[Rfam]
Shown here is a 74-nucleotide RNA sequence from Medicago truncatula, a member of the family "MIR5272 microRNA precursor family". The base pairs follow the family's consensus structure, which was predicted with RNAalifold. Rfam 15.1 lists 271 matches to the family in 4 species. Gene Ontology terms of the family: miRNA-mediated post-transcriptional gene silencing and RISC complex. The organism belongs to Medicago, within Eukaryota.

RNA sequence: UUUGAUGUGAAUUGAUUUAUGUUUGGAUGCACUCGCUUAAAAGUGAUUUUGAUGGGUUGAUGUUGUUUGGAUAG
Dot-bracket structure: ..........((((((((..((..((((.((((........))))))))..)))))))))).............